[Rfam]
Record summary:
A member of the RNA family "tRNA" from Salmonella enterica, 74 nucleotides long. The organism belongs to Salmonella enterica subsp. enterica serovar Typhimurium, within Bacteria. The family's consensus secondary structure is taken from published work. Rfam's curators write: Transfer RNA (tRNA) molecules are approximately 80 nucleotides in length. By type it is a transfer RNA.
RNA sequence: CGGCGAGUAGCGCAGCUUGGUAGCGCAACUGGUUUGGGACCAGUGGGUCGGAGGUUCGAAUCCUCUCUCGCCGA
Numbered sequence: 001c002g003g004c005g006a007g008u009a010g011c012g013c014a015g016c017u018u019g020g021u022a023g024c025g026c027a028a029c030u031g032g033u034u035u036g037g038g039a040c041c042a043g044u045g046g047g048u049c050g051g052a053g054g055u056u057c058g059a060a061u062c063c064u065c066u067c068u069c070g071c072c073g074a
Base pairs, nucleotide, nucleotide: 001073002072003071004070005069006068007067010026011025012024013023028044029043030042031041032040050066051065052064053063054062